RNA sequence: CAUCGGCGUUUUUUGCCGAGUCCGGAGUAUGGCCCGUCCCCCGCCUAGACCGGACACAGCGGCAGCCUAAUCCCCCUCUCCGGGCUGCCGCUCCAUUUUGAAGUACCGCCGCCGUGGUCUCCCCCUCCGCCACGGCGGCAUUUC
Number, nucleotide and partner (000 for none) at each position: 001c000002a000003u000004c000005g000006g000007c000008g000009u000010u000011u000012u000013u000014u000015g000016c000017c000018g000019a000020g000021u054022c053023c052024g051025g050026a000027g000028u000029a000030u000031g045032g044033c043034c000035c000036g000037u000038c000039c000040c000041c000042c000043g033044c032045c031046u000047a000048g000049a000050c025051c024052g023053g022054a021055c000056a000057c000058a092059g091060c090061g089062g088063c087064a086065g085066c084067c083068u000069a000070a000071u000072c000073c000074c000075c000076c000077u000078c000079u000080c000081c000082g000083g067084g066085c065086u064087g063088c062089c061090g060091c059092u058093c000094c000095a000096u000097u000098u000099u000100g000101a000102a000103g000104u000105a000106c000107c000108g000109c138110c137111g136112c135113c134114g133115u132116g131117g130118u129119c000120u000121c000122c000123c000124c000125c000126u000127c000128c000129g118130c117131c116132a115133c114134g113135g112136c111137g110138g109139c000140a000141u000142u000143u000144c000
RNA: Alphaproteobacterial sRNA ar7